[Rfam]
RNA: Purine riboswitch aptamer
Organism: Clostridium baratii
RNA sequence: CGUAAAAACAAAUAUGGUAUCCAUAUAUUUCUGAUAAUAAGGUUCAGAUGUUUCUACGAGAAAACCAUAAAUUUUCUCGCUAUGGGUAAAUCAUACAAGAGA
Numbered sequence: 001c002g003u004a005a006a007a008a009c010a011a012a013u014a015u016g017g018u019a020u021c022c023a024u025a026u027a028u029u030u031c032u033g034a035u036a037a038u039a040a041g042g043u044u045c046a047g048a049u050g051u052u053u054c055u056a057c058g059a060g061a062a063a064a065c066c067a068u069a070a071a072u073u074u075u076c077u078c079g080c081u082a083u084g085g086g087u088a089a090a091u092c093a094u095a096c097a098a099g100a101g102a
Stems, first nucleotide, its partner, number of pairs: 018088008030048005058078007